RNA sequence: AACUUUAUAGGCAAACUUAUCGAAAGAUAAGGACGCAAAGCCAUGGGUCUAACAAUAUUUAUUAAUGAUUGCCAGGCUGCCGCUU
Numbered sequence: 001a002a003c004u005u006u007a008u009a010g011g012c013a014a015a016c017u018u019a020u021c022g023a024a025a026g027a028u029a030a031g032g033a034c035g036c037a038a039a040g041c042c043a044u045g046g047g048u049c050u051a052a053c054a055a056u057a058u059u060u061a062u063u064a065a066u067g068a069u070u071g072c073c074a075g076g077c078u079g080c081c082g083c084u085u
Stems, first nucleotide, its partner, number of pairs: 001085001003082001011036002016031006034071001039078004044074003047069003